[Rfam]
RNA: c-di-AMP riboswitch aptamer (ydaO/yuaA leader)
Organism: Cellulomonas sp. PhB150
RNA sequence: CCGUACGAACCGCCGGCAGGGGCGGGGGACCCAAUUGUGGGCACCGGAUGUCUCGGUGUCCUUGGGGUGAAGCCCCGACGAACGACCUCCGGGUCGGCCGUCGAGGCCGGGUGUUUCUCCCACCCGAACCCGACAGCUCACCUCGUAGGCGUAACGGAGAGGCACU
Numbered sequence: 001c002c003g004u005a006c007g008a009a010c011c012g013c014c015g016g017c018a019g020g021g022g023c024g025g026g027g028g029a030c031c032c033a034a035u036u037g038u039g040g041g042c043a044c045c046g047g048a049u050g051u052c053u054c055g056g057u058g059u060c061c062u063u064g065g066g067g068u069g070a071a072g073c074c075c076c077g078a079c080g081a082a083c084g085a086c087c088u089c090c091g092g093g094u095c096g097g098c099c100g101u102c103g104a105g106g107c108c109g110g111g112u113g114u115u116u117c118u119c120c121c122a123c124c125c126g127a128a129c130c131c132g133a134c135a136g137c138u139c140a141c142c143u144c145g146u147a148g149g150c151g152u153a154a155c156g157g158a159g160a161g162g163c164a165c166u
Base pairs, nucleotide, nucleotide: 001149002148006021022146023145024144025143026142027141032064033063065131066130067129073106074105076103077102078101079100080099109125110124111123112122